[Rfam]
RNA sequence: GGAGAGAUGGCAGAGUGGUUGAAUGCGGCAGUCUCGAAAAUUGCUAAGGGGUAACACCCUUCGAGGGUUCAAAUCCCUCUCUCUCCG
Numbered sequence: 001g002g003a004g005a006g007a008u009g010g011c012a013g014a015g016u017g018g019u020u021g022a023a024u025g026c027g028g029c030a031g032u033c034u035c036g037a038a039a040a041u042u043g044c045u046a047a048g049g050g051g052u053a054a055c056a057c058c059c060u061u062c063g064a065g066g067g068u069u070c071a072a073a074u075c076c077c078u079c080u081c082u083c084u085c086c087g
Stems, first nucleotide, its partner, number of pairs: 001086007010026003028044005063079005
This 87-nucleotide RNA from Cyanobacterium aponinum belongs to the Rfam family "tRNA". Transfer RNA (tRNA) molecules are approximately 80 nucleotides in length. A search with the family's covariance model found it, with a score of 57 bits. Lineage of the source: Bacteria > Cyanobacteriota > Chroococcales > Geminocystaceae > Cyanobacterium aponinum.